RNA: MIR5387 microRNA precursor family
Organism: Sorghum bicolor
RNA sequence: AUAUAACACAAACCGGUGCUAAAGGGUCUCUGCCCCGACAGCACCUGUCAGUAGCUGUUGGAUAGAACCCUUUAGCACCGGUCCUUGUUACAAA
Numbered sequence: 001a002u003a004u005a006a007c008a009c010a011a012a013c014c015g016g017u018g019c020u021a022a023a024g025g026g027u028c029u030c031u032g033c034c035c036c037g038a039c040a041g042c043a044c045c046u047g048u049c050a051g052u053a054g055c056u057g058u059u060g061g062a063u064a065g066a067a068c069c070c071u072u073u074a075g076c077a078c079c080g081g082u083c084c085u086u087g088u089u090a091c092a093a094a
Stems, first nucleotide, its partner, number of pairs: 004090005012082016029066002034061002038058002045051002